This 127-nucleotide sequence from Gossypium raimondii belongs to the Rfam family "MIR7502 microRNA precursor family". It is one of the family's seed sequences.
[Rfam]
RNA sequence: AGUUAAAAUAUUUAUCUAUUUUUACUGUUAAAAAUUGGCGUAGCUGACACAUGGCUUUGUCACAUGUACCUCAUGGCAAUGUACAAAGACCAGUUCUUAACGGUAGAAAUGGAUGAAUUUUUUAACA
Numbered sequence: 001a002g003u004u005a006a007a008a009u010a011u012u013u014a015u016c017u018a019u020u021u022u023u024a025c026u027g028u029u030a031a032a033a034a035u036u037g038g039c040g041u042a043g044c045u046g047a048c049a050c051a052u053g054g055c056u057u058u059g060u061c062a063c064a065u066g067u068a069c070c071u072c073a074u075g076g077c078a079a080u081g082u083a084c085a086a087a088g089a090c091c092a093g094u095u096c097u098u099a100a101c102g103g104u105a106g107a108a109a110u111g112g113a114u115g116a117a118u119u120u121u122u123u124a125a126c127a
Base pairs, nucleotide, nucleotide: 002126003125004124005123006122007121008120010118011117012116013115014114015113016112018110019109020108021107022106023105024104025103026102028100029099030098031097033095

Rfam 15.1 lists 74,505 matches to the family in 24 species. Rfam links the family to the GO terms miRNA-mediated post-transcriptional gene silencing and RISC complex. The family's consensus secondary structure was predicted with RNAalifold.